[Rfam]
Annotation: Rfam assigns this 86-nucleotide RNA sequence from Triticum aestivum to the family "MIR2275 microRNA precursor family". Its family is annotated with RISC complex and miRNA-mediated post-transcriptional gene silencing in the Gene Ontology. Lineage of the source: Eukaryota > Embryophyta > Petrosaviidae > Triticinae > Triticum. A search with the family's covariance model found it, with a score of 81 bits.

RNA sequence: AAGUUGAAUGUGAGAUUUGGAGGGAACCAAAUCUUAAGCUAUCAUGCCACAAGAUUUGGUUUCCUCCAGUAUCUCAUCUUCAACUG
Numbered sequence: 001a002a003g004u005u006g007a008a009u010g011u012g013a014g015a016u017u018u019g020g021a022g023g024g025a026a027c028c029a030a031a032u033c034u035u036a037a038g039c040u041a042u043c044a045u046g047c048c049a050c051a052a053g054a055u056u057u058g059g060u061u062u063c064c065u066c067c068a069g070u071a072u073c074u075c076a077u078c079u080u081c082a083a084c085u086g
Stems, first nucleotide, its partner, number of pairs: 004083005011076004017069005023063008032054002